[Rfam]
RNA sequence: UGAUAGCAAUGAAGCGUGAGGUUGCCACGCAGGUAUAGCGCGUGGGUUUUCCGUGGAGCGAAUGUCAAGUUAGCAAACUGGCGACAA
Numbered sequence: 001u002g003a004u005a006g007c008a009a010u011g012a013a014g015c016g017u018g019a020g021g022u023u024g025c026c027a028c029g030c031a032g033g034u035a036u037a038g039c040g041c042g043u044g045g046g047u048u049u050u051c052c053g054u055g056g057a058g059c060g061a062a063u064g065u066c067a068a069g070u071u072a073g074c075a076a077a078c079u080g081g082c083g084a085c086a087a
Stems, first nucleotide, its partner, number of pairs: 014054003018051004025045005063086004069082004

Rfam assigns this 87-nucleotide RNA sequence from Clostridiaceae bacterium OM08-6BH to the family "S10-Clostridia ribosomal protein leader". The literature on the family includes a 2020 paper in BMC Microbiol by Eckert and Weinberg, "Discovery of 20 novel ribosomal leader candidates in bacteria and archaea". It is annotated as a cis-regulatory leader. The base pairs follow the family's consensus structure, which is taken from published work. The match comes from Rfam's covariance-model search (89 bits). Taxonomically the source falls in Clostridiaceae (Bacteria, Bacillati, Bacillota, Clostridia).